[Rfam]
RNA sequence: GUAAAGAAGUAAUAAAAUAUUUCUUGUUAUAUCAAGAGGUUUGUUAUUGCUUCUUUACUAUU
Numbered sequence: 001g002u003a004a005a006g007a008a009g010u011a012a013u014a015a016a017a018u019a020u021u022u023c024u025u026g027u028u029a030u031a032u033c034a035a036g037a038g039g040u041u042u043g044u045u046a047u048u049g050c051u052u053c054u055u056u057a058c059u060a061u062u
Base pairs, nucleotide, nucleotide: 001058002057003056004055005054006053007052008051009050010049011048012047013046014045015044016041017040018039022037023036024035025034026033